The record is a 133-nucleotide RNA sequence from Neobacillus massiliamazoniensis, which matches "Ribosomal protein L20 leader" in Rfam. For this family Rfam cites "Diverse mechanisms for regulating ribosomal protein synthesis in Escherichia coli" (Zengel and Lindahl, Prog Nucleic Acid Res Mol Biol, 1994). The family's RNA type in Rfam is cis-regulatory leader. The match comes from Rfam's covariance-model search (80 bits). Lineage of the source: Bacteria > Bacilli > Caryophanales > Bacillaceae > Neobacillus. About the family: This family is a putative r-protein leader autoregulatory structure found in B. subtilis and other low-GC Gram-positive bacteria.

[Rfam]
RNA sequence: UGGGAAAAGAAGAAGCACCCGCUUCUCACCUGAUUGACGCUGUUUCGAGCAGUUGACAGGUAUUACAUGAACUUUUAAUUUAUUAAUUAUGUUCGUAAAGUGUGGGUGAAUUCAUCUGCACUUUUUUUGUAUG
Numbered sequence: 001u002g003g004g005a006a007a008a009g010a011a012g013a014a015g016c017a018c019c020c021g022c023u024u025c026u027c028a029c030c031u032g033a034u035u036g037a038c039g040c041u042g043u044u045u046c047g048a049g050c051a052g053u054u055g056a057c058a059g060g061u062a063u064u065a066c067a068u069g070a071a072c073u074u075u076u077a078a079u080u081u082a083u084u085a086a087u088u089a090u091g092u093u094c095g096u097a098a099a100g101u102g103u104g105g106g107u108g109a110a111u112u113c114a115u116c117u118g119c120a121c122u123u124u125u126u127u128u129g130u131a132u133g
Stems, first nucleotide, its partner, number of pairs: 011026006028061003036054003039050002101120008